[Rfam]
RNA: Small nucleolar RNA SNORA70
Organism: Cebus imitator
RNA sequence: CUGCAGCCAAUUAAGCCGACUGGGCUCCUUUCCUCAUGGGGGCCCAGUGUGCAAGGGCUGCAAACAGCAGCUUCCUUGGUAGUGUAAUGCAGUCUAUUUCUUGCAUAGGUUGCUCCAAGGGACCUUGGAGACGGGG
Numbered sequence: 001c002u003g004c005a006g007c008c009a010a011u012u013a014a015g016c017c018g019a020c021u022g023g024g025c026u027c028c029u030u031u032c033c034u035c036a037u038g039g040g041g042g043c044c045c046a047g048u049g050u051g052c053a054a055g056g057g058c059u060g061c062a063a064a065c066a067g068c069a070g071c072u073u074c075c076u077u078g079g080u081a082g083u084g085u086a087a088u089g090c091a092g093u094c095u096a097u098u099u100c101u102u103g104c105a106u107a108g109g110u111u112g113c114u115c116c117a118a119g120g121g122a123c124c125u126u127g128g129a130g131a132c133g134g135g136g
Stems, first nucleotide, its partner, number of pairs: 002053004019048004025042004078124003090112006